[Rfam]
Shown here is a 213-nucleotide RNA sequence from Clostridium disporicum, a member of the family "T-box leader".
RNA sequence: AAUAAACCGUUGAAAAGGCUAGUAAUAAGAUAGAUGUUUUAAGAGAGUCAGUGGUUGGUGUAAACUGAUAACUAUAUUUUAUGAAUCCACCUUGGAGGGACUGUGAUGAGCAGUACGGUGUAAUUCCGUUAAAUUAUUUAAGUGGAUAGAAGUAUGUUUUUAUAUAUUACUACUAUCAAUUAGGGUGGCAACACGGAGUCUUUCGUCCCUUGU
Numbered sequence: 001a002a003u004a005a006a007c008c009g010u011u012g013a014a015a016a017g018g019c020u021a022g023u024a025a026u027a028a029g030a031u032a033g034a035u036g037u038u039u040u041a042a043g044a045g046a047g048u049c050a051g052u053g054g055u056u057g058g059u060g061u062a063a064a065c066u067g068a069u070a071a072c073u074a075u076a077u078u079u080u081a082u083g084a085a086u087c088c089a090c091c092u093u094g095g096a097g098g099g100a101c102u103g104u105g106a107u108g109a110g111c112a113g114u115a116c117g118g119u120g121u122a123a124u125u126c127c128g129u130u131a132a133a134u135u136a137u138u139u140a141a142g143u144g145g146a147u148a149g150a151a152g153u154a155u156g157u158u159u160u161u162a163u164a165u166a167u168u169a170c171u172a173c174u175a176u177c178a179a180u181u182a183g184g185g186u187g188g189c190a191a192c193a194c195g196g197a198g199u200c201u202u203u204c205g206u207c208c209c210u211u212g213u
Stems, first nucleotide, its partner, number of pairs: 007098002015093004025082006036072003047069006100114005116128003145177005151171004182210004193206005
It scores 131 bits against the family's covariance model.